Overview: Shown here is a 137-nucleotide sequence from Dasypus novemcinctus, a member of the family "Small nucleolar RNA SNORA47". The sequence is in the family's curated seed alignment.
RNA sequence: UGGAGGACUGAGAAGGUGAGGCAGAUCUGUACCAUGCUGCUUUCCACUGGUUAAGACCUCCCAGAGUGAAGGGUGCCAAGGCAGAGGAUGUCCCUCUGCCACCCUUGGAGGGGCAGCACUGUGCUGGCCAACAUUUG
Numbered sequence: 001u002g003g004a005g006g007a008c009u010g011a012g013a014a015g016g017u018g019a020g021g022c023a024g025a026u027c028u029g030u031a032c033c034a035u036g037c038u039g040c041u042u043u044c045c046a047c048u049g050g051u052u053a054a055g056a057c058c059u060c061c062c063a064g065a066g067u068g069a070a071g072g073g074u075g076c077c078a079a080g081g082c083a084g085a086g087g088a089u090g091u092c093c094c095u096c097u098g099c100c101a102c103c104c105u106u107g108g109a110g111g112g113g114c115a116g117c118a119c120u121g122u123g124c125u126g127g128c129c130a131a132c133a134u135u136u137g
Base pairs, nucleotide, nucleotide: 002061003060004059005058006057015048016047017046018045019042020041021040022039023038024037080129081128082127085125086124088122089121090120096116097115098114099113100112102111103110
The family's consensus secondary structure was predicted with WAR.